[Rfam]
This 521-nucleotide part of an RNA from an uncultured bacterium belongs to the Rfam family "Bacterial small subunit ribosomal RNA". For this family Rfam cites "Crystal structure of the ribosome at 5.5 A resolution" (Yusupov et al., Science, 2001). Clan: SSU clan. Pairs were carried over by alignment from the consensus structure, which is taken from published work. The sequence is in the family's curated seed alignment.
Nucleotides: 521
Stems, first nucleotide, its partner, number of pairs: 008024005026511004031507006038382006044375002046340001051338003055335003060083003065080002068077003090293003100217007109210002114206007122156004131146006162186005168180002191198002219265003226256003231253008268290004272283004295316005318329004346372001348371003354367005385415004395406003420448006429438001455500005466495005476483002
Number, partner (000 for none) and nucleotide at each position: 001000u002000c003000g004000a005000u006000u007000a008024g009023a010022g011021u012020u013000u014000g015000a016000u017000c018000c019000u020012g021011g022010c023009u024008c025000a026511g027510g028509a029508u030000g031507a032506a033505c034504g035503c036502u037000g038382g039381c040380g041379g042378c043377g044375u045374g046340c047000c048000u049000a050000a051338c052337a053336c054000a055335u056334g057333c058000a059000a060083g061082u062081c063000g064000a065080a066079c067000g068077g069076u070075c071000g072000c073000a074000a075070g076069a077068c078000a079066g080065u081062g082061g083060c084000g085000c086000a087000c088000g089000g090293g091292u092291g093000a094000g095000g096000a097000a098000c099000a100217c101216g102215u103214a104213g105212c106211u107000a108000a109210c110209c111000u112000g113000c114206c115205c116204u117203c118202a119201a120200g121000a122156c123155c124154g125153g126000g127000a128000u129000a130000a131146c132145g133144g134143a135142u136141c137000g138000a139000a140000a141136g142135g143134u144133c145132u146131g147000c148000u149000a150000a151000u152000a153125c154124c155123g156122g157000a158000u159000a160000a161000g162186c163185u164184c165183a166182c167000g168180u169179g170000a171000a172000g173000u174000a175000g176000a177000a178000g179169c180168a181000a182166g183165u184164g185163a186162g187000a188000a189000a190000a191198g192197g193000g194000a195000u196000a197192c198191c199000g200120c201119u202118u203117g204116a205115g206114g207000a208000g209110g210109g211106g212105g213104c214103u215102g216101c217100g218000g219265c220264c221263u222000a223000u224000c225000a226256g227255g228254u229000a230000g231253u232252u233251g234250g235249u236248g237247a238246g239000g240000u241000a242000a243000u244000g245000g246238c247237u248236c249235a250234c251233c252232a253231a254228g255227c256226c257000g258000a259000c260000g261000a262000c263221g264220g265219g266000u267000a268290g269289g270288g271287g272283g273282c274281c275280u276000g277000a278000g279000a280275g281274g282273g283272u284000g285000a286000c287271c288270c289269c290268c291092c292091a293090c294000a295316c296315u297314g298313g299312g300000a301000c302000u303000g304000a305000g306000a307000c308000a309000c310000g311000g312299c313298c314297c315296a316295g317000a318329c319328u320327c321326c322000u323000a324000c325000g326321g327320g328319a329318g330000g331000c332000a333057g334056c335055a336053g337052u338051g339000a340046g341000g342000g343000a344000u345000a346372u347000u348371g349370c350369a351000c352000a353000a354367u355366g356365g357364g358363c359000g360000c361000a362000a363358g364357c365356c366355u367354g368000a369350u370349g371348c372346a373000g374045c375044g376000a377043c378042g379041c380040c381039g382038c383000g384000u385415g386414a387413g388412u389000g390000a391000a392000g393000a394000a395406g396405g397404c398000c399000u400000u401000c402000g403000a404397g405396u406395c407000g408000u409000a410000a411000a412388a413387c414386u415385c416000u417000u418000u419000u420448g421447c422446c423445g424444a425443u426000g427000a428000c429438g430000a431000g432000g433000a434000a435000g436000g437000a438429c439000g440000g441000u442000a443425g444424u445423c446422g447421g448420c449000g450000a451000a452000u453000a454000a455500g456499c457498c458497u459496c460000g461000g462000c463000u464000a465000a466495c467494u468493a469492c470491g471000u472000g473000c474000c475000a476483g477482c478000a479000g480000c481000c482477g483476c484000g485000g486000u487000a488000a489000a490000a491470c492469g493468u494467a495466g496459g497458a498457g499456g500455c501000g502036a503035g504034c505033g506032u507031u508029a509028u510027c511026c512000g513000g514000a515000g516000u517000u518000a519000c520000u521000g